This 146-nucleotide RNA from Sorghum bicolor belongs to the Rfam family "MIR6234 microRNA precursor family". Rfam links the family to the GO terms RISC complex and miRNA-mediated post-transcriptional gene silencing.
Nucleotides: 146
Stems, first nucleotide, its partner, number of pairs: 002145004007140001010137001018128002021125005027119003031116015046099005054091003058086001061083004065078001069074001
Number, partner (000 for none) and nucleotide at each position: 001000c002145u003144c004143u005142u006000c007140u008000u009000a010137g011000u012000c013000u014000a015000c016000a017000a018128g019127u020000u021125u022124g023123u024122u025121c026000c027119u028118c029117u030000a031116u032115u033114u034113g035112a036111u037110g038109c039108u040107a041106a042105a043104g044103g045102u046099g047098g048097a049096u050095g051000a052000u053000c054091u055090a056089g057000u058086u059000g060000a061083a062082a063081c064080a065078u066000u067000u068000a069074a070000c071000a072000a073000a074069u075000g076000a077000u078065a079000u080064u081063g082062u083061u084000a085000a086058a087000u088000a089056u090055u091054g092000u093000a094000g095050u096049a097048u098047u099046c100000u101000u102045a103044c104043c105042u106041u107040u108039a109038g110037c111036g112035u113034c114033a115032a116031g117029a118028g119027a120000c121025g122024a123023a124022c125021a126000c127019a128018c129000c130000c131000a132000c133000c134000c135000a136000a137010c138000g139000g140007a141000a142005a143004a144003g145002g146000c

Source information:
The source organism's lineage runs through Eukaryota, Petrosaviidae, commelinids, Poales and Sorghum.